[Rfam]
Description:
The family of this 189-nucleotide RNA sequence from Strigamia maritima is "U2 spliceosomal RNA". Gene Ontology terms of the family: pre-mRNA branch point binding, U2 snRNP and mRNA branch site recognition. The base pairs follow the family's consensus structure, which is taken from published work. NCBI's taxonomy places the organism under Eukaryota, Opisthokonta, Ecdysozoa, Panarthropoda, Strigamia. The match comes from Rfam's covariance-model search (103 bits). U2 is a small nuclear RNA (snRNA) component of the spliceosome (involved in pre-mRNA splicing). Complementary binding between U2 snRNA (in an area lying towards the 5' end but 3' to hairpin I) and the branchpoint sequence (BPS) of the intron results the bulging out of an unpaired adenosine, on the BPS, which initiates a nucleophilic attack at the intronic 5' splice site, thus starting the first of two transesterification reactions that mediate splicing.

RNA sequence: AUAAAAGGGCCCGUAAAAUGGCCCCAUUAAAUAGUAUUUGUUCUUAUCAGCUUGAUAUCUGAUAUGGUUCCGAAAUGGAAUCUUCGAUAUUGAAUAGAUUUUUGGAUCUAGGCAAGAGCUAGAGGCUUGCUUCUACCUUGCCAUGAGUCAUCUCAGUUUUGCAGUAUCUCUGAGUUUGGCUCUCAUAAA
Number, nucleotide and partner (000 for none) at each position: 001a000002u026003a000004a000005a000006a000007g000008g000009g000010c000011c000012c000013g000014u000015a000016a000017a000018a000019u000020g000021g000022c000023c000024c000025c000026a002027u000028u000029a000030a000031a000032u000033a000034g000035u000036a000037u000038u000039u000040g000041u000042u000043c000044u000045u064046a063047u062048c061049a060050g059051c000052u000053u000054g000055a000056u000057a000058u000059c050060u049061g048062a047063u046064a045065u000066g082067g081068u080069u079070c078071c077072g076073a000074a000075a000076u072077g071078g070079a069080a068081u067082c066083u000084u000085c000086g000087a000088u000089a000090u000091u000092g000093a000094a000095u000096a000097g000098a000099u000100u000101u000102u000103u000104g000105g000106a000107u000108c000109u000110a000111g142112g141113c140114a139115a138116g137117a000118g000119c000120u000121a000122g133123a132124g131125g130126c000127u000128u000129g000130c125131u124132u123133c122134u000135a000136c000137c116138u115139u114140g113141c112142c111143a000144u000145g182146a181147g180148u179149c178150a177151u000152c174153u173154c172155a171156g170157u000158u000159u000160u000161g000162c000163a000164g000165u000166a000167u000168c000169u000170c156171u155172g154173a153174g152175u000176u000177u150178g149179g148180c147181u146182c145183u000184c000185a000186u000187a000188a000189a000